mir-2954 microRNA precursor family: a 63-nucleotide RNA sequence from Gallus gallus. Rfam links the family to the GO terms miRNA-mediated post-transcriptional gene silencing and RISC complex.
[Rfam]
RNA sequence: CUGAGAGGGCUUGGGGAGAGGAUUGUAGUGGAGCUCCAUCCCCAUUCCACUCCUAGCAGCUCU
Numbered sequence: 001c002u003g004a005g006a007g008g009g010c011u012u013g014g015g016g017a018g019a020g021g022a023u024u025g026u027a028g029u030g031g032a033g034c035u036c037c038a039u040c041c042c043c044a045u046u047c048c049a050c051u052c053c054u055a056g057c058a059g060c061u062c063u
Stems, first nucleotide, its partner, number of pairs: 006063006014054005020048003024044002028039004